[Rfam]
RNA sequence: CCGAAGAAACAGGGGUGCUGUGCUUUAAUAUUCAGGGCGCGGCUGAGAGUUACCCUUUAUACCCGAACAAGAUAAUACUUGCGUGGGGAGUUUUCAGCGUAACCGA
Numbered sequence: 001c002c003g004a005a006g007a008a009a010c011a012g013g014g015g016u017g018c019u020g021u022g023c024u025u026u027a028a029u030a031u032u033c034a035g036g037g038c039g040c041g042g043c044u045g046a047g048a049g050u051u052a053c054c055c056u057u058u059a060u061a062c063c064c065g066a067a068c069a070a071g072a073u074a075a076u077a078c079u080u081g082c083g084u085g086g087g088g089a090g091u092u093u094u095c096a097g098c099g100u101a102a103c104c105g106a
Stems, first nucleotide, its partner, number of pairs: 006094005011056004017043010062087004068081004

TPP riboswitch aptamer (THI element): a 106-nucleotide RNA sequence from Neisseria animaloris. Lineage of the source: Bacteria > Pseudomonadati > Betaproteobacteria > Neisseriaceae > Neisseria.